[Rfam]
RNA sequence: GAUUACAUUCCUUUCUGUGAUCGCGGCUG
Numbered sequence: 001g002a003u004u005a006c007a008u009u010c011c012u013u014u015c016u017g018u019g020a021u022c023g024c025g026g027c028u029g
Base pairs, nucleotide, nucleotide: 001022002021003020004019005018006017007016